Description:
This 85-nucleotide RNA sequence from Ammoniphilus sp. CFH 90114 belongs to the Rfam family "c-di-GMP-I riboswitch aptamer". The base pairs follow the family's consensus structure, which is taken from published work.
RNA sequence: ACUACAUAAAGGCAAACCUAUUGAAAGGUGGGGACGCAAAGCCACAAGCCUAAGGGAGAAAUUCUAUGGCGGUUGGGUUGCCAAG
Numbered sequence: 001a002c003u004a005c006a007u008a009a010a011g012g013c014a015a016a017c018c019u020a021u022u023g024a025a026a027g028g029u030g031g032g033g034a035c036g037c038a039a040a041g042c043c044a045c046a047a048g049c050c051u052a053a054g055g056g057a058g059a060a061a062u063u064c065u066a067u068g069g070c071g072g073u074u075g076g077g078u079u080g081c082c083a084a085g
Stems, first nucleotide, its partner, number of pairs: 012037002017032006040079004045075003048070003055064003
Description
Gene Ontology term of the family: cyclic-di-GMP binding. It scores 78 bits against the family's covariance model.